[Rfam]
RNA sequence: AAUGAUGGUUUAGUCACUUUUCAUUAUAGUUCUUAUGGAACUUUUUGUCUGCAUUUAAAAAGCUCCAUAAUCUCUACAGUGGUUUUACCCCCUACAGAAAUUAUAGAGCC
Numbered sequence: 001a002a003u004g005a006u007g008g009u010u011u012a013g014u015c016a017c018u019u020u021u022c023a024u025u026a027u028a029g030u031u032c033u034u035a036u037g038g039a040a041c042u043u044u045u046u047g048u049c050u051g052c053a054u055u056u057a058a059a060a061a062g063c064u065c066c067a068u069a070a071u072c073u074c075u076a077c078a079g080u081g082g083u084u085u086u087a088c089c090c091c092c093u094a095c096a097g098a099a100a101u102u103a104u105a106g107a108g109c110c
Base pairs, nucleotide, nucleotide: 001025002024003023004022005021008017009016028043029042031040062109063108064107065106067104068103069102070101071100073098074097078093079092081090082089
RNA: Streptococcus RNA 266
Organism: Streptococcus thermophilus